[Rfam]
Record summary: The family of this 152-nucleotide sequence from Thiorhodococcus minor is "Group II catalytic intron D1-D4-7". Gene Ontology term of the family: Group II intron splicing. Taxonomically the source falls in Thiorhodococcus (Bacteria, Pseudomonadati, Gammaproteobacteria, Chromatiales). A reference for the family is Bonen and Vogel (2001), "The ins and outs of group II introns", Trends Genet. The pairing is the family consensus, mapped onto this sequence. Rfam 15.1 lists 1,296 matches to the family in 705 species.

RNA sequence: UCCGGUGUUCUGCCACCGGUACCCUACCGAGCCGUGCGUUGGGGGUAACCCCGGGGUGCGAAGCGCUCGGGACACUGUGGCCUCCGCCUGAUCCGCGGGCAACCGAACCGUGAGGUGAGGUUGCGACUACCAGCCUCAAGGUGGUCGGGAGC
Number, nucleotide and partner (000 for none) at each position: 001u000002c019003c018004g017005g016006u015007g014008u000009u000010c000011u000012g000013c000014c007015a006016c005017c004018g003019g002020u000021a000022c000023c000024c000025u000026a000027c000028c069029g068030a067031g066032c065033c060034g059035u058036g057037c056038g000039u054040u053041g052042g051043g050044g049045g000046u000047a000048a000049c044050c043051c042052c041053g040054g039055g000056g037057u036058g035059c034060g033061a000062a000063g000064c000065g032066c031067u030068c029069g028070g000071g000072a000073c000074a000075c000076u000077g000078u000079g000080g000081c000082c000083u099084c098085c097086g096087c095088c000089u000090g000091a000092u000093c000094c000095g087096c086097g085098g084099g083100c000101a122102a121103c120104c119105g000106a000107a000108c115109c114110g000111u000112g000113a000114g109115g108116u000117g000118a000119g104120g103121u102122u101123g000124c000125g000126a145127c144128u143129a142130c141131c140132a000133g000134c000135c000136u000137c000138a000139a000140g131141g130142u129143g128144g127145u126146c000147g000148g000149g000150a000151g000152c000